[Rfam]
RNA sequence: GCGGAGGGCCGGAUGGCCGCGGCGGUCUCGUGCCGUCGAGGAAAGUCCGGACUCCCUGAAGCAACGGUGCCGGGUAACGCCCGGGCGGGGUAACCCGACGGAAAGCGCCACAGAGAACAGACUACCGUCCUCCGGGGCGGAAAAGGUGAAACGGUGGGGUAAGAGCCCACCGCGCCCCUGGCAACAGGGGCGGCAUGGCAAGCCCCACCGGGAGCAAUGCCGAAUAGGACCCCCGCGCGGUCAGGUCCCCGAAAGGGAAACCGCCGCUAGGCUCGCUUCAGCCGAGAGGGGUCGGGUUGGCAGCAGGAGGCGCGGCGCGAGUCGCGUCCCAGAUGAAUGGUCGUCGACGGGGCCUUGGCCCCUGAACAAAAUCCGGCUUACAGGCCCUCCGCGCAU
Numbered sequence: 001g002c003g004g005a006g007g008g009c010c011g012g013a014u015g016g017c018c019g020c021g022g023c024g025g026u027c028u029c030g031u032g033c034c035g036u037c038g039a040g041g042a043a044a045g046u047c048c049g050g051a052c053u054c055c056c057u058g059a060a061g062c063a064a065c066g067g068u069g070c071c072g073g074g075u076a077a078c079g080c081c082c083g084g085g086c087g088g089g090g091u092a093a094c095c096c097g098a099c100g101g102a103a104a105g106c107g108c109c110a111c112a113g114a115g116a117a118c119a120g121a122c123u124a125c126c127g128u129c130c131u132c133c134g135g136g137g138c139g140g141a142a143a144a145g146g147u148g149a150a151a152c153g154g155u156g157g158g159g160u161a162a163g164a165g166c167c168c169a170c171c172g173c174g175c176c177c178c179u180g181g182c183a184a185c186a187g188g189g190g191c192g193g194c195a196u197g198g199c200a201a202g203c204c205c206c207a208c209c210g211g212g213a214g215c216a217a218u219g220c221c222g223a224a225u226a227g228g229a230c231c232c233c234c235g236c237g238c239g240g241u242c243a244g245g246u247c248c249c250c251g252a253a254a255g256g257g258a259a260a261c262c263g264c265c266g267c268u269a270g271g272c273u274c275g276c277u278u279c280a281g282c283c284g285a286g287a288g289g290g291g292u293c294g295g296g297u298u299g300g301c302a303g304c305a306g307g308a309g310g311c312g313c314g315g316c317g318c319g320a321g322u323c324g325c326g327u328c329c330c331a332g333a334u335g336a337a338u339g340g341u342c343g344u345c346g347a348c349g350g351g352g353c354c355u356u357g358g359c360c361c362c363u364g365a366a367c368a369a370a371a372u373c374c375g376g377c378u379u380a381c382a383g384g385c386c387c388u389c390c391g392c393g394c395a396u
Base pairs, nucleotide, nucleotide: 001392002391003390004389005388006387007386008385009384010383011381012345013344014343015342016341017340018339020038021037022036023035024034025033026032043379044378045377047376048375049374050373051372052214053213054212055211063278065210066209067208068207069206070084071083072082073081074080085099086097087096088095089094100205101204105203106202107199108198109197122145123144125140126139127138128137129136130135153171154170155169156168157167158166172194173192174191175190176189177188178187179186180185218302219301220300221299228293229292230291231290232289233288272286273285274284275283309328310327311326312325313324314323315322316321

The family of this 396-nucleotide sequence from Pseudodonghicola xiamenensis is "Bacterial RNase P class A". Pairs were carried over by alignment from the consensus structure, which is taken from published work. Rfam's curators write: Ribonuclease P (RNase P) is a ubiquitous endoribonuclease, found in archaea, bacteria and eukarya as well as chloroplasts and mitochondria. Rfam classes the family as a ribozyme.